[Rfam]
RNA sequence: AAAGGAGCAAUAACAAAAUUCUUGUUCUAUCAAGAAGACGUUAUUGCUCCUUUAC
Numbered sequence: 001a002a003a004g005g006a007g008c009a010a011u012a013a014c015a016a017a018a019u020u021c022u023u024g025u026u027c028u029a030u031c032a033a034g035a036a037g038a039c040g041u042u043a044u045u046g047c048u049c050c051u052u053u054a055c
Stems, first nucleotide, its partner, number of pairs: 001053014019036006
A member of the RNA family "Plastid-psbA-3 3UTR RNA" from Androsace paxiana, 55 nucleotides long. For this family Rfam cites "Retrograde signaling in plants: A critical review focusing on the GUN pathway and beyond" (Richter et al., Plant Commun, 2023). Plastid psbA-3 is a non-coding RNA (ncRNA) present in plastids. NCBI's taxonomy places the organism under Eukaryota, Euphyllophyta, Ericales, Primulaceae, Androsace. The sequence is in the family's curated seed alignment. Clan: Plastid-psbA 3UTR RNA clan. The family's consensus secondary structure was predicted with LocARNA. The family's RNA type in Rfam is cis-regulatory element.